Shown here is a 75-nucleotide sequence from Alligator mississippiensis, a member of the family "Mammalian CPEB3 ribozyme". The base pairs follow the family's consensus structure, which is taken from published work.

[Rfam]
RNA sequence: AACUGCCAUAAUGGCCAUAGCAGAAGCGCUCACAUCGUAGCCCUGUCAGAUUCUAACGGAUCUGCAAAUUCUGCU
Number, nucleotide and partner (000 for none) at each position: 001a000002a000003c000004u000005g000006c000007c000008a000009u000010a000011a000012u000013g042014g041015c040016c000017a000018u000019a075020g074021c073022a072023g071024a070025a069026g038027c037028g036029c000030u000031c000032a000033c000034a000035u000036c028037g027038u026039a000040g015041c014042c013043c000044u000045g000046u000047c064048a063049g062050a061051u060052u059053c058054u000055a000056a000057c000058g053059g052060a051061u050062c049063u048064g047065c000066a000067a000068a000069u025070u024071c023072u022073g021074c020075u019

The match comes from Rfam's covariance-model search (57 bits). The literature on the family includes a 2006 paper in Science by Salehi-Ashtiani et al., "A genomewide search for ribozymes reveals an HDV-like sequence in the human CPEB3 gene".